[Rfam]
RNA sequence: AUGUAUGCUAACUGUAAGUUGCUCUGGAUAAGAGUGUCUGCUAAAUGACUAAAA
Numbered sequence: 001a002u003g004u005a006u007g008c009u010a011a012c013u014g015u016a017a018g019u020u021g022c023u024c025u026g027g028a029u030a031a032g033a034g035u036g037u038c039u040g041c042u043a044a045a046u047g048a049c050u051a052a053a054a
Stems, first nucleotide, its partner, number of pairs: 013043001014041003020036006
RNA: UnaL2 LINE 3' element
Organism: Coregonus sp. 'balchen'